The record is a 139-nucleotide RNA sequence from Tahibacter aquaticus, which matches "Group II catalytic intron D1-D4-4" in Rfam. The match comes from Rfam's covariance-model search (92 bits). Group II introns are found in rRNA, tRNA and mRNA of organelles in fungi, plants and protists, and also in mRNA in bacteria. Gene Ontology term of the family: Group II intron splicing. For this family Rfam cites "Group II introns: structure and catalytic versatility of large natural ribozymes" (Lehmann and Schmidt, Crit Rev Biochem Mol Biol, 2003). The pairing is the family consensus, mapped onto this sequence. The source organism's lineage runs through Bacteria, Pseudomonadati, Lysobacterales, Rhodanobacteraceae and Tahibacter. The family has 90 seed sequences and 840 matches in Rfam 15.1.

RNA sequence: CAGCUAGAGAGUAGUCCAGCCCGGCAACUAUUGCUCCGGCCGGUAGCAACCGAAGCGGCGGUGUAGGUAACGAACCGCCGGAGCCUUCGGUGUAAAGGGUCGUGAAAGCGACUCGGCGAGUAUGCAGGCCGUAACGAGA
Numbered sequence: 001c002a003g004c005u006a007g008a009g010a011g012u013a014g015u016c017c018a019g020c021c022c023g024g025c026a027a028c029u030a031u032u033g034c035u036c037c038g039g040c041c042g043g044u045a046g047c048a049a050c051c052g053a054a055g056c057g058g059c060g061g062u063g064u065a066g067g068u069a070a071c072g073a074a075c076c077g078c079c080g081g082a083g084c085c086u087u088c089g090g091u092g093u094a095a096a097g098g099g100u101c102g103u104g105a106a107a108g109c110g111a112c113u114c115g116g117c118g119a120g121u122a123u124g125c126a127g128g129c130c131g132u133a134a135c136g137a138g139a
Stems, first nucleotide, its partner, number of pairs: 021043005051089005056080006066071001097114006116132003